Background:
Rfam assigns this 53-nucleotide RNA from Aurantimonas sp. 22II-16-19i to the family "sul1 RNA". Rfam classes the family as a riboswitch. The base pairs follow the family's consensus structure, which is taken from published work. Lineage of the source: Bacteria > Pseudomonadati > Alphaproteobacteria > Hyphomicrobiales > Aurantimonas. A search with the family's covariance model found it, with a score of 53 bits.

[Rfam]
RNA sequence: UAAGGACCCAUUCGCUUGGGUGGCUAUGCCGGGCGCCUAUCCCUCGGCCAACC
Numbered sequence: 001u002a003a004g005g006a007c008c009c010a011u012u013c014g015c016u017u018g019g020g021u022g023g024c025u026a027u028g029c030c031g032g033g034c035g036c037c038u039a040u041c042c043c044u045c046g047g048c049c050a051a052c053c
Base pairs, nucleotide, nucleotide: 006021007020008019009018010017028048029047030046031045032044033043